[Rfam]
RNA: mir-17 microRNA precursor family
RNA sequence: UUCAGCAGUGCUAAAGUGCUUAUAGUGCAGGUAGUAUUUCUGUCAUCUACUGCAGUGUGAGCACUUGAAGUACUUCUAG
Numbered sequence: 001u002u003c004a005g006c007a008g009u010g011c012u013a014a015a016g017u018g019c020u021u022a023u024a025g026u027g028c029a030g031g032u033a034g035u036a037u038u039u040c041u042g043u044c045a046u047c048u049a050c051u052g053c054a055g056u057g058u059g060a061g062c063a064c065u066u067g068a069a070g071u072a073c074u075u076c077u078a079g
Stems, first nucleotide, its partner, number of pairs: 005076001007074002010071003014066011026054003030051005